[Rfam]
RNA: Plant small nucleolar RNA U3
RNA sequence: ACGACCUUACUUGAACAGGAUCUGUUCUAUAGGCUCGUAUCGUUGCAUCCUUUUCCAAUAAGGAGGCAAGCUCUCAAGUCUGGUUGAUGCGACAUAACCUCCGGGCCAGAGCGUGAUUUAACGGCUAGGAUGCAUGUUUGAGCCAUCCGACGGCUGCAGAGGAUCGUUCCUGCCUGGUUCACUCCGGUGCAGGGUGGCCCAGAGGUUGUCUGACAGACA
Numbered sequence: 001a002c003g004a005c006c007u008u009a010c011u012u013g014a015a016c017a018g019g020a021u022c023u024g025u026u027c028u029a030u031a032g033g034c035u036c037g038u039a040u041c042g043u044u045g046c047a048u049c050c051u052u053u054u055c056c057a058a059u060a061a062g063g064a065g066g067c068a069a070g071c072u073c074u075c076a077a078g079u080c081u082g083g084u085u086g087a088u089g090c091g092a093c094a095u096a097a098c099c100u101c102c103g104g105g106c107c108a109g110a111g112c113g114u115g116a117u118u119u120a121a122c123g124g125c126u127a128g129g130a131u132g133c134a135u136g137u138u139u140g141a142g143c144c145a146u147c148c149g150a151c152g153g154c155u156g157c158a159g160a161g162g163a164u165c166g167u168u169c170c171u172g173c174c175u176g177g178u179u180c181a182c183u184c185c186g187g188u189g190c191a192g193g194g195u196g197g198c199c200c201a202g203a204g205g206u207u208g209u210c211u212g213a214c215a216g217a218c219a
Stems, first nucleotide, its partner, number of pairs: 001038002003035001005033003013027006043069004048064005078218005097206005103200006110168004122156005128148004132143002135140001169193005174187004